[Rfam]
RNA sequence: CUGGCACAGAUAACCCAAAGGAAACUAUUUUACUGUGUAGUUAUCUUGUCUUCUGUGCCCAAAGUAAGGUUGUACCUUGUCGCCUUUCAAGAGCUGAUGUGCCUAUGAAAGUGAAAUUAAAGGUCCUACAAAU
Numbered sequence: 001c002u003g004g005c006a007c008a009g010a011u012a013a014c015c016c017a018a019a020g021g022a023a024a025c026u027a028u029u030u031u032a033c034u035g036u037g038u039a040g041u042u043a044u045c046u047u048g049u050c051u052u053c054u055g056u057g058c059c060c061a062a063a064g065u066a067a068g069g070u071u072g073u074a075c076c077u078u079g080u081c082g083c084c085u086u087u088c089a090a091g092a093g094c095u096g097a098u099g100u101g102c103c104u105a106u107g108a109a110a111g112u113g114a115a116a117u118u119a120a121a122g123g124u125c126c127u128a129c130a131a132a133u
Stems, first nucleotide, its partner, number of pairs: 003059007020045002023042006072126001074124005084111006091104001093102002
Dot-bracket structure: ..(((((((..........((.((((((........)))))).)).......)))))))............(.(((((.....((((((.(.((......)).).))))))........))))).).......
This 133-nucleotide sequence from Eleutherodactylus coqui belongs to the Rfam family "Small nucleolar RNA SNORA68". The match comes from Rfam's covariance-model search (80 bits). The family's consensus secondary structure was predicted with PFOLD. U68 is a member of the H/ACA class of small nucleolar RNAs (snoRNAs) which act as guides in the the modification of uridines to pseudouridines. The family's RNA type in Rfam is H/ACA-box small nucleolar RNA.